[Rfam]
RNA sequence: AGUGCUUCUCGCGCGGCGUUAUCUCGUGAACCUCCCCAGGGCCGGAAGGCAGCAAGGAUAAGCGGGCUCUGGCGGGUGCGCGAGGAGUUUUUUC
Numbered sequence: 001a002g003u004g005c006u007u008c009u010c011g012c013g014c015g016g017c018g019u020u021a022u023c024u025c026g027u028g029a030a031c032c033u034c035c036c037c038a039g040g041g042c043c044g045g046a047a048g049g050c051a052g053c054a055a056g057g058a059u060a061a062g063c064g065g066g067c068u069c070u071g072g073c074g075g076g077u078g079c080g081c082g083a084g085g086a087g088u089u090u091u092u093u094c
Stems, first nucleotide, its partner, number of pairs: 004088010014076001017074005023066005033058003041050003
Bacterial small signal recognition particle RNA: a 94-nucleotide RNA from Stackebrandtia nassauensis.
The signal recognition particle (SRP) is a universally conserved ribonucleoprotein involved in the co-translational targeting of proteins to membranes.
Pairs were carried over by alignment from the consensus structure, which is taken from published work.
The family's RNA type in Rfam is non-coding RNA gene.